Record summary:
Rfam assigns this 403-nucleotide sequence from Gordonia aichiensis to the family "Bacterial RNase P class A". The base pairs follow the family's consensus structure, which is taken from published work. Rfam classes the family as a ribozyme. The match comes from Rfam's covariance-model search (276 bits). The family is grouped with related families in Rfam's "RNaseP clan".

RNA sequence: CGAGUCGGCCGGGCGGCCGCGGCGAGCGGAACGGCCAGGUCACUGGAUAUGCCGCUCGCCGAGGAAAGUCCGGACUCCGCAGAGCAGGGUGGUUGUCAACGGCAACCCGGGGUGACCCGCGGGACAGUGCCACAGAGAACAGACCGCCGACCGAGGUCGGUAAGGGUGAAACGGUGCGGUAAGAGCGCACCAGCGACGUGGGUGACCACGUCGGCUUGGUAAACCCCACCCGGAGCAAGGCCGAAGCACGGACCGAUGUGGUGCGUGUGCACGGAUGAUCGAGGGCUGCUCGCCCGAGUCCGUGGGUUGGCUGCUCGAGGCACCCGGUGACGGUGUGUCCAGAUGGAUGGUCGCCGCCGACUCCGUGUCGGCACAGGAUCCGGCUUACACGCCGGCUCGUUCG
Numbered sequence: 001c002g003a004g005u006c007g008g009c010c011g012g013g014c015g016g017c018c019g020c021g022g023c024g025a026g027c028g029g030a031a032c033g034g035c036c037a038g039g040u041c042a043c044u045g046g047a048u049a050u051g052c053c054g055c056u057c058g059c060c061g062a063g064g065a066a067a068g069u070c071c072g073g074a075c076u077c078c079g080c081a082g083a084g085c086a087g088g089g090u091g092g093u094u095g096u097c098a099a100c101g102g103c104a105a106c107c108c109g110g111g112g113u114g115a116c117c118c119g120c121g122g123g124a125c126a127g128u129g130c131c132a133c134a135g136a137g138a139a140c141a142g143a144c145c146g147c148c149g150a151c152c153g154a155g156g157u158c159g160g161u162a163a164g165g166g167u168g169a170a171a172c173g174g175u176g177c178g179g180u181a182a183g184a185g186c187g188c189a190c191c192a193g194c195g196a197c198g199u200g201g202g203u204g205a206c207c208a209c210g211u212c213g214g215c216u217u218g219g220u221a222a223a224c225c226c227c228a229c230c231c232g233g234a235g236c237a238a239g240g241c242c243g244a245a246g247c248a249c250g251g252a253c254c255g256a257u258g259u260g261g262u263g264c265g266u267g268u269g270c271a272c273g274g275a276u277g278a279u280c281g282a283g284g285g286c287u288g289c290u291c292g293c294c295c296g297a298g299u300c301c302g303u304g305g306g307u308u309g310g311c312u313g314c315u316c317g318a319g320g321c322a323c324c325c326g327g328u329g330a331c332g333g334u335g336u337g338u339c340c341a342g343a344u345g346g347a348u349g350g351u352c353g354c355c356g357c358c359g360a361c362u363c364c365g366u367g368u369c370g371g372c373a374c375a376g377g378a379u380c381c382g383g384c385u386u387a388c389a390c391g392c393c394g395g396c397u398c399g400u401u402c403g
Stems, first nucleotide, its partner, number of pairs: 001399009011388001012355007020061009066386003070383005075235004082291004087231005092106005107121001108119004122226002127224002129220003144165002146161006173191006193215001194213008239312004248303006283295004319339005324333003